The family of this 95-nucleotide sequence from Anopheles darlingi is "mir-12 microRNA precursor family". Lineage of the source: Eukaryota > Pancrustacea > Aparaglossata > Anophelinae > argyritarsis series. The family's consensus secondary structure was predicted with RNAalifold. The literature on the family includes a 2010 paper in Genome Biol Evol by Marco et al., "Functional shifts in insect microRNA evolution".
RNA sequence: CCGGGGUGAGUAUUACAUCAGGUACUGGUGUGCUUUACAUGGGACUUUUAAGAGGACCCUCACAACUAUCAGUACUUAUGUCAUACUCUCUUCGU
Numbered sequence: 001c002c003g004g005g006g007u008g009a010g011u012a013u014u015a016c017a018u019c020a021g022g023u024a025c026u027g028g029u030g031u032g033c034u035u036u037a038c039a040u041g042g043g044a045c046u047u048u049u050a051a052g053a054g055g056a057c058c059c060u061c062a063c064a065a066c067u068a069u070c071a072g073u074a075c076u077u078a079u080g081u082c083a084u085a086c087u088c089u090c091u092u093c094g095u
Stems, first nucleotide, its partner, number of pairs: 002094005009087004015081004021076009